T-box leader: a 302-nucleotide RNA from Staphylococcus aureus. Gene Ontology term of the family: tRNA binding. From the family's description: Uncharged tRNA acts as the effector for transcription antitermination of genes in the T-box leader family. On this family, see Grundy et al., RNA 2000: "tRNA determinants for transcription antitermination of the Bacillus subtilis tyrS gene". By type it is a cis-regulatory leader.
RNA sequence: UUUAAUAUAGGAUUUGGGAAGAGUAAGUUCAAAUUAUUUUAAAGAGAGCAUAUGAUUUGGUGUGAGUAUGUAAAUGAUUUUUACUGAAGGUAGCCCACAGAGUAUCUUAGCUGAACGUGAUUAAUAGUAGGCUAAGACGUGUUUGAGCGUUAAUCAUAAUCUAGAGUGCUUGAAGAGAUGAAGCAUUUCAAAUUUCACGAUGAUAGUAUUGGUAUGAUUAUUCCAAUUAUGUUAAAAGAGUGAAUUUGAUAUUAAACAUCCUUCUUGAAUAUAGGUGGUACCACGGAAUAUCCGUCCUAUUU
Numbered sequence: 001u002u003u004a005a006u007a008u009a010g011g012a013u014u015u016g017g018g019a020a021g022a023g024u025a026a027g028u029u030c031a032a033a034u035u036a037u038u039u040u041a042a043a044g045a046g047a048g049c050a051u052a053u054g055a056u057u058u059g060g061u062g063u064g065a066g067u068a069u070g071u072a073a074a075u076g077a078u079u080u081u082u083a084c085u086g087a088a089g090g091u092a093g094c095c096c097a098c099a100g101a102g103u104a105u106c107u108u109a110g111c112u113g114a115a116c117g118u119g120a121u122u123a124a125u126a127g128u129a130g131g132c133u134a135a136g137a138c139g140u141g142u143u144u145g146a147g148c149g150u151u152a153a154u155c156a157u158a159a160u161c162u163a164g165a166g167u168g169c170u171u172g173a174a175g176a177g178a179u180g181a182a183g184c185a186u187u188u189c190a191a192a193u194u195u196c197a198c199g200a201u202g203a204u205a206g207u208a209u210u211g212g213u214a215u216g217a218u219u220a221u222u223c224c225a226a227u228u229a230u231g232u233u234a235a236a237a238g239a240g241u242g243a244a245u246u247u248g249a250u251a252u253u254a255a256a257c258a259u260c261c262u263u264c265u266u267g268a269a270u271a272u273a274g275g276u277g278g279u280a281c282c283a284c285g286g287a288a289u290a291u292c293c294g295u296c297c298u299a300u301u302u
Stems, first nucleotide, its partner, number of pairs: 007103002015097004026085003031080001037074003048071006106136007138149003169267001172264004272299004283295005